[Rfam]
Bacillaceae-1 RNA: a 67-nucleotide RNA sequence from Terrihalobacillus insolitus. The family's RNA type in Rfam is small RNA. The family has 95 seed sequences and 5,721 matches in Rfam 15.1. Taxonomically the source falls in Terrihalobacillus (Bacteria, Bacillota, Bacilli, Caryophanales).
RNA sequence: AGCCAACGAAGUCCGGCUAACGUCUGACACGUCCUGUGUCAAACGCUGGAUCAGCCCGUCGUGGGCA
Dot-bracket structure: ..........(((((((........(((((.....)))))....)))))))..((((.....)))).
Numbered sequence: 001a002g003c004c005a006a007c008g009a010a011g012u013c014c015g016g017c018u019a020a021c022g023u024c025u026g027a028c029a030c031g032u033c034c035u036g037u038g039u040c041a042a043a044c045g046c047u048g049g050a051u052c053a054g055c056c057c058g059u060c061g062u063g064g065g066c067a
Stems, first nucleotide, its partner, number of pairs: 011051007026040005054066004